[Rfam]
RNA: Makes More Granules Regulator RNA (mmgR)
RNA sequence: AGAACCUGCCUUUCAGGCAUCCUCUCCUAAAACUUUUACGGGCUGCUCUUCGGAUCGGUCCGUUUUUUUUGGCCGU
Numbered sequence: 001a002g003a004a005c006c007u008g009c010c011u012u013u014c015a016g017g018c019a020u021c022c023u024c025u026c027c028u029a030a031a032a033c034u035u036u037u038a039c040g041g042g043c044u045g046c047u048c049u050u051c052g053g054a055u056c057g058g059u060c061c062g063u064u065u066u067u068u069u070u071g072g073c074c075g076u
Stems, first nucleotide, its partner, number of pairs: 008018004040061006047054002